[Rfam]
The family of this 74-nucleotide RNA sequence from Menura novaehollandiae is "Small nucleolar RNA SNORD47". For this family Rfam cites "Site-specific ribose methylation of preribosomal RNA: a novel function for small nucleolar RNAs" (Kiss-Laszlo et al., Cell, 1996). Rfam links the family to the GO terms RNA processing and nucleolus. The base pairs follow the family's consensus structure, which was predicted with ILM. Lineage of the source: Eukaryota > Sauropsida > Sauria > Neoaves > Menura.

RNA sequence: AGCCACUGAUGAAAUUGAUUCUGCCAAAUGAACUACUGUGAUAUUAUUCUUCCGUUCCUUUUCUGUCUGAGGUU
Numbered sequence: 001a002g003c004c005a006c007u008g009a010u011g012a013a014a015u016u017g018a019u020u021c022u023g024c025c026a027a028a029u030g031a032a033c034u035a036c037u038g039u040g041a042u043a044u045u046a047u048u049c050u051u052c053c054g055u056u057c058c059u060u061u062u063c064u065g066u067c068u069g070a071g072g073u074u
Stems, first nucleotide, its partner, number of pairs: 001074004